[Rfam]
RNA: Small Cajal body specific RNA 16
RNA sequence: AUGGUCAAGGUAAUGGCUCCUGUGUGGCUGUAUCCAUUUACUGGGUAUAGCUUACCUGGCAGCUCAACCUUGACCUAGAGUAAUCCUUGGGCUCCUUCCUACAGGGAAGGCCCUUGCAGUAGCAGGUGUGAGCAUUCAAACAGCAGUUCGAUGGUCAUGUAUAAUACUGCACACACAA
Numbered sequence: 001a002u003g004g005u006c007a008a009g010g011u012a013a014u015g016g017c018u019c020c021u022g023u024g025u026g027g028c029u030g031u032a033u034c035c036a037u038u039u040a041c042u043g044g045g046u047a048u049a050g051c052u053u054a055c056c057u058g059g060c061a062g063c064u065c066a067a068c069c070u071u072g073a074c075c076u077a078g079a080g081u082a083a084u085c086c087u088u089g090g091g092c093u094c095c096u097u098c099c100u101a102c103a104g105g106g107a108a109g110g111c112c113c114u115u116g117c118a119g120u121a122g123c124a125g126g127u128g129u130g131a132g133c134a135u136u137c138a139a140a141c142a143g144c145a146g147u148u149c150g151a152u153g154g155u156c157a158u159g160u161a162u163a164a165u166a167c168u169g170c171a172c173a174c175a176c177a178a
Stems, first nucleotide, its partner, number of pairs: 003075004008070003015064004019059002022056001024055002026052005032046003085105003088101004115171007124162001129157003133153004139148003